Shown here is a 279-nucleotide RNA sequence from Panagrellus redivivus, a member of the family "Nuclear RNase P". Rfam classes the family as a ribozyme. A search with the family's covariance model found it, with a score of 101 bits. Rfam describes the family as follows. Ribonuclease P (RNase P) is a ubiquitous endoribonuclease, found in archaea, bacteria and eukarya as well as chloroplasts and mitochondria. Pairs were carried over by alignment from the consensus structure, which is taken from published work.
[Rfam]
RNA sequence: UUGCUUGCGAGAUGACUUCAGGAGUUGAGAUCGAGCACAUUGUUGUUCCCCUUGGGCUCUUGGGAAGGUCUGAGACAUGGUCAAUCUGCCCCUCAGGAAGGGGACGUCCGAGUGUGGGCGUGAAACUGUACUGGAAGCAAGCUGUACGGUGUUCGAGCCUGAGGACAGGAAGCCUUUCGGGGUGGAUCCGAUUGGACACGCGUGCAUUUGAAACACGGUUUCGACCAGCUACUUUAGUGCGAUAGUCAAAUAACCCAAUUCAGACUACUACACGAGCAA
Dot-bracket structure: ((((..(.(...[...[[.(((((........(((((......)))))........)))))........(((((....((((......(((((.....)))))((((((......))))))(((((((..............((............................................................)).........))))))))))).................]]...].........))))).......).)..))))
Numbered sequence: 001u002u003g004c005u006u007g008c009g010a011g012a013u014g015a016c017u018u019c020a021g022g023a024g025u026u027g028a029g030a031u032c033g034a035g036c037a038c039a040u041u042g043u044u045g046u047u048c049c050c051c052u053u054g055g056g057c058u059c060u061u062g063g064g065a066a067g068g069u070c071u072g073a074g075a076c077a078u079g080g081u082c083a084a085u086c087u088g089c090c091c092c093u094c095a096g097g098a099a100g101g102g103g104a105c106g107u108c109c110g111a112g113u114g115u116g117g118g119c120g121u122g123a124a125a126c127u128g129u130a131c132u133g134g135a136a137g138c139a140a141g142c143u144g145u146a147c148g149g150u151g152u153u154c155g156a157g158c159c160u161g162a163g164g165a166c167a168g169g170a171a172g173c174c175u176u177u178c179g180g181g182g183u184g185g186a187u188c189c190g191a192u193u194g195g196a197c198a199c200g201c202g203u204g205c206a207u208u209u210g211a212a213a214c215a216c217g218g219u220u221u222c223g224a225c226c227a228g229c230u231a232c233u234u235u236a237g238u239g240c241g242a243u244a245g246u247c248a249a250a251u252a253a254c255c256c257a258a259u260u261c262a263g264a265c266u267a268c269u270a271c272a273c274g275a276g277c278a279a
Stems, first nucleotide, its partner, number of pairs: 001279004007273001009271001013249001017245002020061005033048005070263005079226004089103005104121006122222007143206002